[Rfam]
This 117-nucleotide sequence from Siccirubricoccus deserti belongs to the Rfam family "ALIL pseudoknot".

RNA sequence: CGCUUAUUUUGCGAUGGCGGAGCUCGACCGCCGAUCGAAGCCAUGAUCGCCUUCAUCGACGAUCAGCGCGAGGUCUACGGUGUCGAGCCGGUCUGCGGGAUGCUGCGGAUCGCUCCG
Numbered sequence: 001c002g003c004u005u006a007u008u009u010u011g012c013g014a015u016g017g018c019g020g021a022g023c024u025c026g027a028c029c030g031c032c033g034a035u036c037g038a039a040g041c042c043a044u045g046a047u048c049g050c051c052u053u054c055a056u057c058g059a060c061g062a063u064c065a066g067c068g069c070g071a072g073g074u075c076u077a078c079g080g081u082g083u084c085g086a087g088c089c090g091g092u093c094u095g096c097g098g099g100a101u102g103c104u105g106c107g108g109a110u111c112g113c114u115c116c117g
Stems, first nucleotide, its partner, number of pairs: 016032005078117003082113001089112002092109007
Record summary: The match comes from Rfam's covariance-model search (111 bits). The base pairs follow the family's consensus structure, which is taken from published work.